This 70-nucleotide sequence from Gallus gallus belongs to the Rfam family "mir-147 microRNA precursor family". Rfam links the family to the GO terms miRNA-mediated post-transcriptional gene silencing and RISC complex. NCBI's taxonomy places the organism under Eukaryota, Euteleostomi, Archelosauria, Coelurosauria, Gallus.

RNA sequence: AAUCUAGUGGAAUCACUUCUGCACAAACUUGACUACUGAAAUCAGUGUGCGGAAAUGCUUCUGCUACAUU
Numbered sequence: 001a002a003u004c005u006a007g008u009g010g011a012a013u014c015a016c017u018u019c020u021g022c023a024c025a026a027a028c029u030u031g032a033c034u035a036c037u038g039a040a041a042u043c044a045g046u047g048u049g050c051g052g053a054a055a056u057g058c059u060u061c062u063g064c065u066a067c068a069u070u
Stems, first nucleotide, its partner, number of pairs: 001070003005066008014057002017054009028045002